[Rfam]
RNA sequence: GGCAGAUAGAUGAUGAUCUAAUUACCCCAAGCGCUUUAUUCCGCUGAUUUCAGUGAUGGAAAGCUAUGCUAUCAUAGCUUUUGUGGUUUUCAAUCUGAAACAUCU
Numbered sequence: 001g002g003c004a005g006a007u008a009g010a011u012g013a014u015g016a017u018c019u020a021a022u023u024a025c026c027c028c029a030a031g032c033g034c035u036u037u038a039u040u041c042c043g044c045u046g047a048u049u050u051c052a053g054u055g056a057u058g059g060a061a062a063g064c065u066a067u068g069c070u071a072u073c074a075u076a077g078c079u080u081u082u083g084u085g086g087u088u089u090u091c092a093a094u095c096u097g098a099a100a101c102a103u104c105u
Stems, first nucleotide, its partner, number of pairs: 004105004030045004059082010